[Rfam]
RNA sequence: UCUAGAACUCGAGAUAUGGGCUUCACACUGAACAAUGUCUAGGCCACAGGAUAAAUUCCGACUUCUUUUUUGUUGCUAUAAUUUAAACUUGAAAUGACCGUUUUGAAUCUUGGACUCUUAUGAAAGUUUUAGGCUUAUAUCUUAGCUUUCCAUC
Numbered sequence: 001u002c003u004a005g006a007a008c009u010c011g012a013g014a015u016a017u018g019g020g021c022u023u024c025a026c027a028c029u030g031a032a033c034a035a036u037g038u039c040u041a042g043g044c045c046a047c048a049g050g051a052u053a054a055a056u057u058c059c060g061a062c063u064u065c066u067u068u069u070u071u072g073u074u075g076c077u078a079u080a081a082u083u084u085a086a087a088c089u090u091g092a093a094a095u096g097a098c099c100g101u102u103u104u105g106a107a108u109c110u111u112g113g114a115c116u117c118u119u120a121u122g123a124a125a126g127u128u129u130u131a132g133g134c135u136u137a138u139a140u141c142u143u144a145g146c147u148u149u150c151c152a153u154c
Stems, first nucleotide, its partner, number of pairs: 003152001005150003008145002011143010021132002025128001027127003035121003041118003048111005054104002058100001060098001063096001068092002072088003